[Rfam]
RNA sequence: UCACCAUUCCAACGGCUUCCUGACGGGGUGGGAUCAACAUACCGGAGCA
Numbered sequence: 001u002c003a004c005c006a007u008u009c010c011a012a013c014g015g016c017u018u019c020c021u022g023a024c025g026g027g028g029u030g031g032g033a034u035c036a037a038c039a040u041a042c043c044g045g046a047g048c049a
Stems, first nucleotide, its partner, number of pairs: 004031007013022002015048003019045002
RNA: SAM/SAH riboswitch aptamer